[Rfam]
Small nucleolar RNA SNORA73 family: a 201-nucleotide RNA from Castor canadensis.
U17 (SNORA73A and SNORA73B) also known as E1 belongs to the H/ACA class of small nucleolar RNAs (snoRNAs). Vertebrate U17 is intron-encoded and ranges in length from 200-230 nucleotides, longer than most snoRNAs. It is one of the most abundant snoRNAs in human cells and is essential for the cleavage of pre-rRNA within the 5' external transcribed spacer (ETS).
A reference for the family is Enright et al. (1996), "5'ETS rRNA processing facilitated by four small RNAs: U14, E3, U17, and U3", RNA.
Pairs were carried over by alignment from the consensus structure, which is taken from published work.
It is annotated as an H/ACA-box small nucleolar RNA.
Its Rfam clan is "snR30-U17 clan".
Lineage of the source: Eukaryota > Bilateria > Craniata > Eutheria > Castor.
Gene Ontology terms of the family: RNA processing and nucleolus.
RNA sequence: UCAACAUGGAUGCCCCAGAAGGUCACUCUCUCUGGACUCUAUCCAAAUGUCAUACAGGAGUACAGGGCUCUGUCCUAUGAUGUACAGUUACUUUCCACAAAACUGGAGAAGCUAGGCUCUGAGUCUCCACCUUUAUAUUCCUACAACUUCUCAGAGUCCUAUGGACAAUGACUGAAGAGACAAACUAUUCAGGAAACAAUG
Numbered sequence: 001u002c003a004a005c006a007u008g009g010a011u012g013c014c015c016c017a018g019a020a021g022g023u024c025a026c027u028c029u030c031u032c033u034g035g036a037c038u039c040u041a042u043c044c045a046a047a048u049g050u051c052a053u054a055c056a057g058g059a060g061u062a063c064a065g066g067g068c069u070c071u072g073u074c075c076u077a078u079g080a081u082g083u084a085c086a087g088u089u090a091c092u093u094u095c096c097a098c099a100a101a102a103c104u105g106g107a108g109a110a111g112c113u114a115g116g117c118u119c120u121g122a123g124u125c126u127c128c129a130c131c132u133u134u135a136u137a138u139u140c141c142u143a144c145a146a147c148u149u150c151u152c153a154g155a156g157u158c159c160u161a162u163g164g165a166c167a168a169u170g171a172c173u174g175a176a177g178a179g180a181c182a183a184a185c186u187a188u189u190c191a192g193g194a195a196a197c198a199a200u201g
Stems, first nucleotide, its partner, number of pairs: 001106003007100001008044005015035002018029001020027002048097002058089002060085001062083003065078001130193003135188002147179003151175002156166004